[Rfam]
RNA sequence: CGUUCAUAGAUUGUCCAUGUCGUUACCCACGAAAGUGGAUACGGGAAUACAAUUGUUGA
Numbered sequence: 001c002g003u004u005c006a007u008a009g010a011u012u013g014u015c016c017a018u019g020u021c022g023u024u025a026c027c028c029a030c031g032a033a034a035g036u037g038g039a040u041a042c043g044g045g046a047a048u049a050c051a052a053u054u055g056u057u058g059a
Stems, first nucleotide, its partner, number of pairs: 009054006020044004027038003
RNA: Transposase-1 RNA